[Rfam]
RNA sequence: AUUGGCAGUGACGACCUGGUUAUAUUCAAGCUCAACAGACCAAAUCACAUGUCUAUCUCUACUCAUGAGAUUGAUCUGUAUGCCGAUUAUCCCGCUGAACUGAGCCAUC
Numbered sequence: 001a002u003u004g005g006c007a008g009u010g011a012c013g014a015c016c017u018g019g020u021u022a023u024a025u026u027c028a029a030g031c032u033c034a035a036c037a038g039a040c041c042a043a044a045u046c047a048c049a050u051g052u053c054u055a056u057c058u059c060u061a062c063u064c065a066u067g068a069g070a071u072u073g074a075u076c077u078g079u080a081u082g083c084c085g086a087u088u089a090u091c092c093c094g095c096u097g098a099a100c101u102g103a104g105c106c107a108u109c
Stems, first nucleotide, its partner, number of pairs: 001108001003107004

Shown here is a 109-nucleotide RNA from Paspalum vaginatum, a member of the family "Small nucleolar RNA Z107/R87".
The family's RNA type in Rfam is C/D-box small nucleolar RNA.
For this family Rfam cites "Identification of 66 box C/D snoRNAs in Arabidopsis thaliana: extensive gene duplications generated multiple isoforms predicting new ribosomal RNA 2'-O-methylation sites" (Barneche et al., J Mol Biol, 2001).
Pairs were carried over by alignment from the consensus structure, which was predicted with RNAfold.
The match comes from Rfam's covariance-model search (104 bits).